[Rfam]
RNA: mir-124 microRNA precursor family
RNA sequence: UUCUCCUCGUGUUCAUUGUUGUGCCUUUUGUAUUAUUGAAUUCGGAUCAUAAGGCACGCGGUGAAUGCCAAGAGCA
Numbered sequence: 001u002u003c004u005c006c007u008c009g010u011g012u013u014c015a016u017u018g019u020u021g022u023g024c025c026u027u028u029u030g031u032a033u034u035a036u037u038g039a040a041u042u043c044g045g046a047u048c049a050u051a052a053g054g055c056a057c058g059c060g061g062u063g064a065a066u067g068c069c070a071a072g073a074g075c076a
Stems, first nucleotide, its partner, number of pairs: 003074003009068008018059002024054004029049002